[Rfam]
RNA sequence: UUGAUGUCGUAGAUACUGCAUCAGGAACUGAUUGGAUAAUAUUCAGGCACCAUCAGUUCCUAAUGCAUUGCCUUCAGCAUCU
Numbered sequence: 001u002u003g004a005u006g007u008c009g010u011a012g013a014u015a016c017u018g019c020a021u022c023a024g025g026a027a028c029u030g031a032u033u034g035g036a037u038a039a040u041a042u043u044c045a046g047g048c049a050c051c052a053u054c055a056g057u058u059c060c061u062a063a064u065g066c067a068u069u070g071c072c073u074u075c076a077g078c079a080u081c082u
Stems, first nucleotide, its partner, number of pairs: 017067005023061009033052003